This 91-nucleotide sequence from Pan troglodytes belongs to the Rfam family "mir-3912 microRNA precursor family". It scores 96 bits against the family's covariance model. Rfam links the family to the GO terms RISC complex and miRNA-mediated post-transcriptional gene silencing.

Nucleotides: 091
Base pairs, nucleotide, nucleotide: 002090003089004088005087006086007085008084009083010082011081012080013079014078015077016076017075018074019073020072021071022070023069024068025067026066027065028064029063030062031061032060033059034058035057036056037055038054039053040052042051043050044049
Number, partner (000 for none) and nucleotide at each position: 001000g002090g003089a004088a005087c006086a007085g008084u009083u010082a011081a012080a013079u014078u015077a016076u017075a018074a019073c020072a021071u022070g023069u024068c025067c026066a027065u028064a029063u030062u031061a032060u033059g034058c035057g036056u037055u038054a039053g040052u041000a042051u043050g044049u045000g046000u047000c048000c049044a050043c051042a052040a053039c054038u055037a056036a057035c058034g059033c060032a061031u062030a063029a064028u065027a066026u067025g068024g069023a070022c071021a072020u073019g074018u075017u076016a077015u078014a079013a080012u081011u082010u083009a084008a085007c086006u087005g088004u089003u090002c091000a